[Rfam]
RNA sequence: UUACUGGACGCUUUAGCUAUUGAACUGUUUUGUCACUCUCUGUCUGUCUCUGACAGAGAACAAUUUGACAAUUUAAACAAUUUAACUGAGAGUGACAAAACAGUUCAAUAGCUAAAGCGUCCAGUAAC
Numbered sequence: 001u002u003a004c005u006g007g008a009c010g011c012u013u014u015a016g017c018u019a020u021u022g023a024a025c026u027g028u029u030u031u032g033u034c035a036c037u038c039u040c041u042g043u044c045u046g047u048c049u050c051u052g053a054c055a056g057a058g059a060a061c062a063a064u065u066u067g068a069c070a071a072u073u074u075a076a077a078c079a080a081u082u083u084a085a086c087u088g089a090g091a092g093u094g095a096c097a098a099a100a101c102a103g104u105u106c107a108a109u110a111g112c113u114a115a116a117g118c119g120u121c122c123a124g125u126a127a128c
Stems, first nucleotide, its partner, number of pairs: 001127006011117018029089002032086002035083001
Rfam assigns this 128-nucleotide sequence from Plutella xylostella to the family "mir-8517 microRNA precursor family". Lineage of the source: Eukaryota > Protostomia > Arthropoda > Allotriocarida > Plutella. It scores 85 bits against the family's covariance model.